[Rfam]
RNA sequence: UCCCGAGCCACCAAUUAGGUUGCAAGAGUGGAACGGGAAGUCCUAUA
Numbered sequence: 001u002c003c004c005g006a007g008c009c010a011c012c013a014a015u016u017a018g019g020u021u022g023c024a025a026g027a028g029u030g031g032a033a034c035g036g037g038a039a040g041u042c043c044u045a046u047a
Stems, first nucleotide, its partner, number of pairs: 001037003008031002012026001016045004
Record summary
Exoribonuclease-resistant RNA (xrRNA) plant-infecting virus (class 3): a 47-nucleotide sequence from Polerovirus SCYLV. On this family, see Gezelle et al., bioRxiv [Preprint] 2024: "The pseudoknot structure of a viral RNA reveals a conserved mechanism for programmed exoribonuclease resistance". From the family's description: Exoribonuclease-resistant RNA (xrRNA) plant-infecting virus (class 3) is a ncRNA that was reported in Plant viruses. Its family is annotated with viral RNA genome replication in the Gene Ontology.